The family of this 75-nucleotide RNA sequence from Phtheirospermum japonicum is "Plastid-ycf2 5UTR RNA". It scores 76 bits against the family's covariance model. Rfam's curators write: Plastid ycf2 is a non-coding RNA (ncRNA) recognised in plastids. It was found in the prime untranslated region (5UTR) of ycf2 genes, it presents a tRNA-like motif which suggests it can be involved in mRNA maturation, particularly involved in defining the precise 5' end of the transcript. The family's consensus secondary structure was predicted with LocARNA.
[Rfam]
RNA sequence: GUGCAUCCACUAGGAAUUGAAUCUACGAAAUCGCCAAUUAUGAGUUGGGCGCUUUAACCAUUCAUCUAUGUAUGC
Numbered sequence: 001g002u003g004c005a006u007c008c009a010c011u012a013g014g015a016a017u018u019g020a021a022u023c024u025a026c027g028a029a030a031u032c033g034c035c036a037a038u039u040a041u042g043a044g045u046u047g048g049g050c051g052c053u054u055u056a057a058c059c060a061u062u063c064a065u066c067u068a069u070g071u072a073u074g075c
Stems, first nucleotide, its partner, number of pairs: 003075004008070001011025004040069003044066001046064004051059001
Dot-bracket structure: ..((((.(..((((.......))))..............(((.(.((((.(.......).)))).))))).))))